[Rfam]
RNA: Betacoronavirus 5'UTR
Organism: Betacoronavirus erinacei
RNA sequence: GAUUAAAGAGAAUAGCAUAGCUAUCCCUCUCUCUCCGUUCUCUUGUAGAACUCUUGUUUUAACGAACUUAAUUAAAAGCCCUUAUACUUUGUCUAGGUAGUGGCAUUAGUGCCAGACCUAUGCAUUGUAGUGGGUUUAGUAAAAACUAAAUUCAUAUUUUUCAUUUAGAGCUGCGUGUCUCAAGUGCGUCUCGGUCACAAUAUACUGUUCCGUCAGGUGCGUGACAAUCCGGGGCUCAUCAUGUCUUCCGCGACUGGUGAGGGUUCUCAAGGUGCGAGGGCCACGUAUAGAGCAGCGCUC
Numbered sequence: 001g002a003u004u005a006a007a008g009a010g011a012a013u014a015g016c017a018u019a020g021c022u023a024u025c026c027c028u029c030u031c032u033c034u035c036c037g038u039u040c041u042c043u044u045g046u047a048g049a050a051c052u053c054u055u056g057u058u059u060u061a062a063c064g065a066a067c068u069u070a071a072u073u074a075a076a077a078g079c080c081c082u083u084a085u086a087c088u089u090u091g092u093c094u095a096g097g098u099a100g101u102g103g104c105a106u107u108a109g110u111g112c113c114a115g116a117c118c119u120a121u122g123c124a125u126u127g128u129a130g131u132g133g134g135u136u137u138a139g140u141a142a143a144a145a146c147u148a149a150a151u152u153c154a155u156a157u158u159u160u161u162c163a164u165u166u167a168g169a170g171c172u173g174c175g176u177g178u179c180u181c182a183a184g185u186g187c188g189u190c191u192c193g194g195u196c197a198c199a200a201u202a203u204a205c206u207g208u209u210c211c212g213u214c215a216g217g218u219g220c221g222u223g224a225c226a227a228u229c230c231g232g233g234g235c236u237c238a239u240c241a242u243g244u245c246u247u248c249c250g251c252g253a254c255u256g257g258u259g260a261g262g263g264u265u266c267u268c269a270a271g272g273u274g275c276g277a278g279g280g281c282c283a284c285g286u287a288u289a290g291a292g293c294a295g296c297g298c299u300c
Stems, first nucleotide, its partner, number of pairs: 007030004012024005037051005077136005085129003090124003094120005174188003200218002205216003235261007243254003